[Rfam]
RNA sequence: AUACGAUAAUGGCAAACCCGUCGAAAGGCGGGGACGCAAAACUUCCGGUCUAAAGGCUUCGGCCUAUGACAGCGGGGUUACCGAA
Number, nucleotide and partner (000 for none) at each position: 001a000002u000003a000004c000005g000006a000007u000008a000009a000010u000011g000012g037013c036014a000015a000016a000017c032018c031019c030020g029021u028022c027023g000024a000025a000026a000027g022028g021029c020030g019031g018032g017033g000034a000035c000036g013037c012038a000039a000040a079041a078042c077043u076044u000045c075046c074047g073048g070049u069050c068051u000052a000053a000054a000055g064056g063057c062058u000059u000060c000061g000062g057063c056064c055065u000066a000067u000068g050069a049070c048071a000072g000073c047074g046075g045076g043077g042078u041079u040080a000081c000082c000083g000084a000085a000